[Rfam]
RNA sequence: CUCCCGGGUCCCUGAUGCUGCCCCCCGGAUGAGCCUGCGGUAUUUUCCUUAUAUGAUCGGGCCCCGUGGCUGGCCGCGCCGCUUUCUUGGAGCCUGAGAGGAUUAUGACAAGGUGUCAGGCGAAGUGGGGCCAGGGGACCCGGGG
Numbered sequence: 001c002u003c004c005c006g007g008g009u010c011c012c013u014g015a016u017g018c019u020g021c022c023c024c025c026c027g028g029a030u031g032a033g034c035c036u037g038c039g040g041u042a043u044u045u046u047c048c049u050u051a052u053a054u055g056a057u058c059g060g061g062c063c064c065c066g067u068g069g070c071u072g073g074c075c076g077c078g079c080c081g082c083u084u085u086c087u088u089g090g091a092g093c094c095u096g097a098g099a100g101g102a103u104u105a106u107g108a109c110a111a112g113g114u115g116u117c118a119g120g121c122g123a124a125g126u127g128g129g130g131c132c133a134g135g136g137g138a139c140c141c142g143g144g145g
Base pairs, nucleotide, nucleotide: 001145002144003143005142006141007140008139009138010137011136012135013134020131021130022129023128024127057097058096059095060094061093062092064090065089069086072083073082074081

Shown here is a 145-nucleotide RNA sequence from Hipposideros armiger, a member of the family "small Cajal body-specific RNA 17".
The match comes from Rfam's covariance-model search (127 bits).
About the family: scaRNAs are a specific class of small nuclear RNAs which localise to the Cajal bodies and guide the modification of RNA polymerase II transcribed spliceosomal RNAs U1, U2, U4, U5 and U12. The complete human U12-22/U4-8 scaRNA is composed of two tandem C/D box domains (termed U12-22 and U4-8).
Rfam classes the family as a small Cajal body RNA.
On this family, see Tycowski et al., Curr Biol 2004: "Guide RNAs with 5' Caps and Novel Box C/D snoRNA-like Domains for Modification of snRNAs in Metazoa".
NCBI's taxonomy places the organism under Eukaryota, Boreoeutheria, Chiroptera, Hipposideridae, Hipposideros.